[Rfam]
RNA: Small nucleolar RNA snoR145
Organism: Musa balbisiana
RNA sequence: GAGCGAAGGUCCCAGCAGAGGGGUGAUGAACUCGUGAGUUGAGACCUCUCUAACUUCUCGGUACAACCUUCGCAAAGUGAAGCCUGCCGUGAUCGUACGACGCCUGAACUCUGUGGUUUACCUGGUGUCUCGUACACGGCUACAGACUG
Numbered sequence: 001g002a003g004c005g006a007a008g009g010u011c012c013c014a015g016c017a018g019a020g021g022g023g024u025g026a027u028g029a030a031c032u033c034g035u036g037a038g039u040u041g042a043g044a045c046c047u048c049u050c051u052a053a054c055u056u057c058u059c060g061g062u063a064c065a066a067c068c069u070u071c072g073c074a075a076a077g078u079g080a081a082g083c084c085u086g087c088c089g090u091g092a093u094c095g096u097a098c099g100a101c102g103c104c105u106g107a108a109c110u111c112u113g114u115g116g117u118u119u120a121c122c123u124g125g126u127g128u129c130u131c132g133u134a135c136a137c138g139g140c141u142a143c144a145g146a147c148u149g
Stems, first nucleotide, its partner, number of pairs: 003073007011020001013018001025050002031043004086140005099129002102126003106122001